[Rfam]
Nucleotides: 144
Base pairs, nucleotide, nucleotide: 002143003142004141005140006139007138009136010135012133013132014131015130016129018127020125021124022123023122024121025120026119028117029116030115031114032113033112
Number, partner (000 for none) and nucleotide at each position: 001000u002143g003142u004141u005140a006139a007138a008000c009136g010135u011000u012133u013132c014131a015130u016129c017000u018127a019000u020125u021124u022123u023122u024121a025120u026119u027000a028117u029116u030115a031114g032113a033112a034000u035000c036000u037000g038000g039000a040000u041000c042000u043000u044000a045000u046000a047000c048000a049000u050000c051000a052000g053000u054000a055000u056000a057000a058000g059000g060000u061000a062000c063000a064000c065000g066000u067000g068000g069000u070000a071000c072000g073000u074000u075000a076000u077000a078000u079000a080000u081000c082000a083000c084000a085000g086000u087000c088000u089000g090000a091000u092000u093000a094000u095000u096000u097000u098000a099000u100000u101000a102000a103000c104000c105000a106000c107000a108000c109000u110000a111000a112033u113032u114031u115030u116029a117028a118000c119026a120025a121024u122023a123022a124021a125020a126000u127018u128000a129016g130015a131014u132013g133012a134000u135010a136009u137000u138007u139006u140005u141004a142003a143002c144000a
A member of the RNA family "MIR7502 microRNA precursor family" from Gossypium trilobum, 144 nucleotides long. The source organism's lineage runs through Eukaryota, Streptophyta, Malvales, Malvaceae and Gossypium. Rfam links the family to the GO terms RISC complex and miRNA-mediated post-transcriptional gene silencing. A search with the family's covariance model found it, with a score of 72 bits. The base pairs follow the family's consensus structure, which was predicted with RNAalifold.